[Rfam]
RNA sequence: UGGACAUAUUAUUGUAUUCGACUGUAUUCAUGGCGUGAAAUAGGAAAUUACACUAUUUUAAAACGGAAAGUGAAUCAAUUAAUAUAAUAGACUCCU
Numbered sequence: 001u002g003g004a005c006a007u008a009u010u011a012u013u014g015u016a017u018u019c020g021a022c023u024g025u026a027u028u029c030a031u032g033g034c035g036u037g038a039a040a041u042a043g044g045a046a047a048u049u050a051c052a053c054u055a056u057u058u059u060a061a062a063a064c065g066g067a068a069a070g071u072g073a074a075u076c077a078a079u080u081a082a083u084a085u086a087a088u089a090g091a092c093u094c095c096u
Stems, first nucleotide, its partner, number of pairs: 002095003009090007017082002020080002023077002026075006034065003037059007

The family of this 96-nucleotide sequence from Nicotiana sylvestris is "MIR6152 microRNA precursor family".
The family's consensus secondary structure was predicted with RNAalifold.
The organism belongs to Nicotiana, within Eukaryota.
Its family is annotated with RISC complex and miRNA-mediated post-transcriptional gene silencing in the Gene Ontology.
A search with the family's covariance model found it, with a score of 103 bits.